Source information: Nucleoid-associated noncoding RNA 4 (CssrE): a 77-nucleotide RNA sequence. From the family's description: In E. coli small RNA transcribed from repeated extragenic palindromic element (REP325) called nucleoid-associated ncRNA 4 (nRNA4) collaborates HU protein in condensing the DNA. The secondary structure but not the sequence of the RNA is important in nucleoid condensation. Also identified in Shigella as CssrE. The family's RNA type in Rfam is small RNA. For this family Rfam cites "An integrated approach for finding overlooked genes in Shigella" (Peng et al., PLoS One, 2011). Pairs were carried over by alignment from the consensus structure, which is taken from published work.
RNA sequence: GGCCUGAUAAGACGCGUGAGCGUCGCAUCAGGCAUCGUUCACCAUUGCCGGAUGCGGCGUUAACGCCUUAUCCGGCC
Numbered sequence: 001g002g003c004c005u006g007a008u009a010a011g012a013c014g015c016g017u018g019a020g021c022g023u024c025g026c027a028u029c030a031g032g033c034a035u036c037g038u039u040c041a042c043c044a045u046u047g048c049c050g051g052a053u054g055c056g057g058c059g060u061u062a063a064c065g066c067c068u069u070a071u072c073c074g075g076c077c
Base pairs, nucleotide, nucleotide: 002033003032004031005030006029007028008027011024012023013022014021047076048075049074050073051072052071053070054069056067057066058065059064
Dot-bracket structure: .(((((((..((((......))))..))))))).............((((((((.((((....)))).)))))))).